A member of the RNA family "Guanidine-II riboswitch aptamer (mini-ykkC)" from Trebonia kvetii, 51 nucleotides long.
It scores 32 bits against the family's covariance model.
Rfam describes the family as follows. Simpler in structure and has fewer highly conserved nucleotide positions than the ykkC-yxkD leader. Despite this each of its two stem-loop structures directly bind free guanidine. Therefore, mini-ykkC RNA motif represents a distinct class of guanidine-sensing RNAs. Its crystal structure was also determined.

RNA sequence: GCGGGGGGACGCCCCCCUGCACGCUGUAUUGCCCGCGGGGGGACGACCCUC
Numbered sequence: 001g002c003g004g005g006g007g008g009a010c011g012c013c014c015c016c017c018u019g020c021a022c023g024c025u026g027u028a029u030u031g032c033c034c035g036c037g038g039g040g041g042g043a044c045g046a047c048c049c050u051c
Stems, first nucleotide, its partner, number of pairs: 001020008038051005